[Rfam]
RNA: Ribosomal protein L20 leader
RNA sequence: AAAAUAAAGUAGAAGCUAUCCGCUUCUCACCCUAUGGCUCGGCUUAUAGGGUUAAUUAUGGCAAAGUUGUACUUUACUUAUGCAUUUUAGGCGGAUAGUGUAUUUUACUAUCCGCUUUUAUAUAUUAUA
Number, nucleotide and partner (000 for none) at each position: 001a000002a000003a000004a000005u000006a000007a000008a000009g000010u000011a027012g026013a025014a024015g023016c022017u000018a000019u000020c000021c000022g016023c015024u014025u013026c012027u011028c000029a052030c051031c050032c000033u000034a047035u046036g045037g043038c042039u000040c000041g000042g038043c037044u000045u036046a035047u034048a000049g000050g031051g030052u029053u000054a000055a000056u000057u000058a000059u000060g000061g000062c000063a000064a000065a000066g000067u000068u000069g000070u000071a000072c000073u000074u000075u000076a000077c000078u000079u000080a000081u000082g000083c000084a000085u000086u000087u000088u000089a000090g116091g115092c114093g113094g112095a111096u110097a109098g108099u107100g000101u000102a000103u000104u000105u000106u000107a099108c098109u097110a096111u095112c094113c093114g092115c091116u090117u000118u000119u000120a000121u000122a000123u000124a000125u000126u000127a000128u000129a000